[Rfam]
Overview: The family of this 86-nucleotide RNA from Sinocyclocheilus rhinocerous is "Small nucleolar RNA SNORD100". The base pairs follow the family's consensus structure, which was predicted with RNAalifold. The family's RNA type in Rfam is C/D-box small nucleolar RNA.
RNA sequence: UGUGUCUAUGAUGAUAAUUUGGCUCCCUCUACUGAAGUCUCUUGAGGAUAACUGCCAUUCGUUACCCAAUUUCUGUCUGAGAUACU
Numbered sequence: 001u002g003u004g005u006c007u008a009u010g011a012u013g014a015u016a017a018u019u020u021g022g023c024u025c026c027c028u029c030u031a032c033u034g035a036a037g038u039c040u041c042u043u044g045a046g047g048a049u050a051a052c053u054g055c056c057a058u059u060c061g062u063u064a065c066c067c068a069a070u071u072u073c074u075g076u077c078u079g080a081g082a083u084a085c086u
Stems, first nucleotide, its partner, number of pairs: 002085005